Rfam assigns this 157-nucleotide RNA sequence to the family "RAGATH-9 RNA".

RNA sequence: CCAAUCAACCCAAAAGAACUGUAAAUAUACCAAAACCCUAAUACAUAUUAUUAUGUAAUGGCUAUUCAACGGCAAUCUGUAAAUCUACAGAUAAAGGGAGAGAAGGAUAGGGGUUAUCUGUAGAAUAAGAGAUAGGAAUAUACAGAACAGUUCUUUU
Numbered sequence: 001c002c003a004a005u006c007a008a009c010c011c012a013a014a015a016g017a018a019c020u021g022u023a024a025a026u027a028u029a030c031c032a033a034a035a036c037c038c039u040a041a042u043a044c045a046u047a048u049u050a051u052u053a054u055g056u057a058a059u060g061g062c063u064a065u066u067c068a069a070c071g072g073c074a075a076u077c078u079g080u081a082a083a084u085c086u087a088c089a090g091a092u093a094a095a096g097g098g099a100g101a102g103a104a105g106g107a108u109a110g111g112g113g114u115u116a117u118c119u120g121u122a123g124a125a126u127a128a129g130a131g132a133u134a135g136g137a138a139u140a141u142a143c144a145g146a147a148c149a150g151u152u153c154u155u156u157u
Base pairs, nucleotide, nucleotide: 012157013156014155015154016153017152018151019150020149021148029114030113031112042057043056044055045054046053061073062072063071075092076091077090078089079088080087081086117146118145119144120143121142122141
On this family, see Weinberg et al., Nat Chem Biol 2015: "New classes of self-cleaving ribozymes revealed by comparative genomics analysis".